[Rfam]
RNA sequence: AAAGAGUUGUUGCAAUAGUAAUCUUGCUUAGUACGAGAGGAACAGCAGGUUCAGACAAUUGGUUUAUGGGCUCGUCCGAUAGGACGAUGGUCCGAAGCUACCAUCUGCGGGAUUAUAACUGAAUGCCUCUAAGUUAGAAGCCCGUCUAGUUAGGUAAACAAUGUUUUGUACCCCGGCUUCGUGUGGUACGUUUAUGCCUCGGCGCUCGCCGCCGUUGCAGCCUUUACCCUAUAUUUGACCUUGCAGGUCGGUUUAAUUACUGGCUUGUUGUCGAAUCCAUACGACUUUGUGUGGUUGAUUGUCAGGGUGUAAGAUCGCUUGUAGACGACUUGACUACUGGUCAGGGGGUUGUACGCAGCAGAGCAGUUAUUACACUGCGAUCUGUUGAGACUAUCCUUUGAUCGGAUGUAUCUGU
Numbered sequence: 001a002a003a004g005a006g007u008u009g010u011u012g013c014a015a016u017a018g019u020a021a022u023c024u025u026g027c028u029u030a031g032u033a034c035g036a037g038a039g040g041a042a043c044a045g046c047a048g049g050u051u052c053a054g055a056c057a058a059u060u061g062g063u064u065u066a067u068g069g070g071c072u073c074g075u076c077c078g079a080u081a082g083g084a085c086g087a088u089g090g091u092c093c094g095a096a097g098c099u100a101c102c103a104u105c106u107g108c109g110g111g112a113u114u115a116u117a118a119c120u121g122a123a124u125g126c127c128u129c130u131a132a133g134u135u136a137g138a139a140g141c142c143c144g145u146c147u148a149g150u151u152a153g154g155u156a157a158a159c160a161a162u163g164u165u166u167u168g169u170a171c172c173c174c175g176g177c178u179u180c181g182u183g184u185g186g187u188a189c190g191u192u193u194a195u196g197c198c199u200c201g202g203c204g205c206u207c208g209c210c211g212c213c214g215u216u217g218c219a220g221c222c223u224u225u226a227c228c229c230u231a232u233a234u235u236u237g238a239c240c241u242u243g244c245a246g247g248u249c250g251g252u253u254u255a256a257u258u259a260c261u262g263g264c265u266u267g268u269u270g271u272c273g274a275a276u277c278c279a280u281a282c283g284a285c286u287u288u289g290u291g292u293g294g295u296u297g298a299u300u301g302u303c304a305g306g307g308u309g310u311a312a313g314a315u316c317g318c319u320u321g322u323a324g325a326c327g328a329c330u331u332g333a334c335u336a337c338u339g340g341u342c343a344g345g346g347g348g349u350u351g352u353a354c355g356c357a358g359c360a361g362a363g364c365a366g367u368u369a370u371u372a373c374a375c376u377g378c379g380a381u382c383u384g385u386u387g388a389g390a391c392u393a394u395c396c397u398u399u400g401a402u403c404g405g406a407u408g409u410a411u412c413u414g415u
Base pairs, nucleotide, nucleotide: 006162007161008160009159010158011157012155013154016148017147018146021051023049024048025047026046027045028044052107053106054105055104060100061099062098067094068093069092070091071090072087073086074085075084076083077082109143110142111141116136117135118134119133120132170308171307172306173305175303176302312413313412314411315410316408318332321329338404339403340402341401342400343399344397345396346395348391349390355385356384357383358382360381363378364377365376366375367374
Dot-bracket structure: .....((((((((..(((..(.((((((...............)))))).)((((....(((....(((((((((((....))))))..)))))...)))...)))).(((....(((((...........)))))....)))..))).....)).)))))).......((((.((.............................................................................................................................)).))))...(((((.(..(.......)..).....(((((((((.((.....((((.(..(((((......)))))..)))))....))...))).))))))...).))))..